[Rfam]
RNA: c-di-AMP riboswitch aptamer (ydaO/yuaA leader)
Organism: Bacillus manliponensis
RNA sequence: AACCUAAAAUCGCUGAGUCCAGAAAUGGAGCGGGGGAACCAAUUUGUGCAUCGUCACUUGGGGUGAAUCUUUCUUAUGAAAGUAGGGCUACUCUUUAGGCCCGAAUCCGACAGCUAACCUCGUAAGUGUUUAGAGAGGAGGU
Number, nucleotide and partner (000 for none) at each position: 001a000002a000003c000004c000005u000006a000007a000008a000009a000010u000011c128012g127013c126014u125015g000016a000017g000018u029019c028020c027021a000022g000023a000024a000025a000026u000027g020028g019029a018030g123031c122032g121033g120034g119035g118036g000037a000038a000039c000040c060041a059042a000043u000044u000045u000046g000047u000048g000049c000050a000051u000052c000053g000054u000055c000056a000057c000058u000059u041060g040061g108062g107063g106064u000065g000066a000067a000068u000069c082070u081071u080072u079073c000074u000075u000076a000077u000078g000079a072080a071081a070082g069083u000084a000085g102086g101087g100088c099089u000090a000091c000092u000093c000094u000095u000096u000097a000098g000099g088100c087101c086102c085103g000104a000105a000106u063107c062108c061109g000110a000111c000112a000113g000114c000115u000116a000117a000118c035119c034120u033121c032122g031123u030124a000125a014126g013127u012128g011129u000130u000131u000132a000133g000134a000135g000136a000137g000138g000139a000140g000141g000142u000